A member of the RNA family "SAH (S-adenosyl-L-homocysteine) riboswitch aptamer" from Luteimonas aestuarii, 78 nucleotides long. The match comes from Rfam's covariance-model search (58 bits). The base pairs follow the family's consensus structure, which is taken from published work. Its family is annotated with regulation of gene expression and S-adenosylhomocysteine metabolic process in the Gene Ontology. The organism belongs to Luteimonas, within Bacteria.
RNA sequence: CCCAUCGAGGGGCGCUGCGACCGUGCAAGCCACGGCCAGGCUCGGUGCGGUUCCAUGCUUCAACGGCGCCCGUUUUUC
Numbered sequence: 001c002c003c004a005u006c007g008a009g010g011g012g013c014g015c016u017g018c019g020a021c022c023g024u025g026c027a028a029g030c031c032a033c034g035g036c037c038a039g040g041c042u043c044g045g046u047g048c049g050g051u052u053c054c055a056u057g058c059u060u061c062a063a064c065g066g067c068g069c070c071c072g073u074u075u076u077u078c
Base pairs, nucleotide, nucleotide: 003047004046005045006044007043008042021035022034023033024032025031